[Rfam]
RNA sequence: GCUGGCACAAUGAUGACAUAAAUUUUUGCCGUUUACCCAGCAGAGGGUUUCUUUGAAGAAAUCAUUUUAAGACUGAGAUGCCAGU
Numbered sequence: 001g002c003u004g005g006c007a008c009a010a011u012g013a014u015g016a017c018a019u020a021a022a023u024u025u026u027u028g029c030c031g032u033u034u035a036c037c038c039a040g041c042a043g044a045g046g047g048u049u050u051c052u053u054u055g056a057a058g059a060a061a062u063c064a065u066u067u068u069a070a071g072a073c074u075g076a077g078a079u080g081c082c083a084g085u
Stems, first nucleotide, its partner, number of pairs: 001085007

Small nucleolar RNA SNORD87: an 85-nucleotide sequence from Cavia porcellus. For this family Rfam cites "U87 RNA, a novel C/D box small nucleolar RNA from mammalian cells" (Gogolevskaya et al., Gene, 2002). The family has 10 seed sequences and 539 matches in Rfam 15.1. Gene Ontology terms of the family: RNA processing and nucleolus. The organism belongs to Cavia, within Eukaryota. The base pairs follow the family's consensus structure.